[Rfam]
RNA sequence: GAGAACUGUCAAGAUGAAGAGUGAAAUGAUUGGGUAACGCCUUGAAGCGCUCUCCUUAAUACUACGAUAUGCAGUUAACCCUCGCAACAGGGUGGCUGUAUAAAGCUCGUGGAAGUCGGCAGAGAGAUACCGUAAGUGGCAGUUAGCUACUCGAAAGCGUGCCAGCGGUGGCAUGUGUAUCCUAUAUGCCGGAGGUCCCUAAA
Dot-bracket structure: .................((((((........(((.....))).....))))))((((......((((((((((((((.((.........)).))))))))))....))))......(((((....(((((((.....((.......))...))...((((((((....))))))))))))).....)))))))))........
RNA: Group II catalytic intron D1-D4-5